Shown here is a 136-nucleotide RNA from Labeo rohita, a member of the family "Small nucleolar RNA SNORA13". ACA13 is a member of the H/ACA class of snoRNA that guide the sites of modification of uridines to pseudouridines. By type it is an H/ACA-box small nucleolar RNA. The source organism's lineage runs through Eukaryota, Opisthokonta, Teleostomi, Euteleostomi and Labeo. Gene Ontology terms of the family: RNA processing and nucleolus.
RNA sequence: UGCCUUUGUGUUGCCCAUUCAUUUUCUAUUAGAUGAAUGUGGUGUCAACUAAGGCGCACAAUAAAUCUUGAAAUAGCCAAAUUUAUGAGAGAACACUCUAAUUGUUUUUCUUGCUUGUGCUAUGACAAGAACAGCA
Numbered sequence: 001u002g003c004c005u006u007u008g009u010g011u012u013g014c015c016c017a018u019u020c021a022u023u024u025u026c027u028a029u030u031a032g033a034u035g036a037a038u039g040u041g042g043u044g045u046c047a048a049c050u051a052a053g054g055c056g057c058a059c060a061a062u063a064a065a066u067c068u069u070g071a072a073a074u075a076g077c078c079a080a081a082u083u084u085a086u087g088a089g090a091g092a093a094c095a096c097u098c099u100a101a102u103u104g105u106u107u108u109u110c111u112u113g114c115u116u117g118u119g120c121u122a123u124g125a126c127a128a129g130a131a132c133a134g135c136a
Base pairs, nucleotide, nucleotide: 002055003054004053005052006051009047010046012044013043014042015041016039017038018037019036020035021034022033023032067129068128069127070126073123074122075121076120077119085118086117087116088115089114091111095106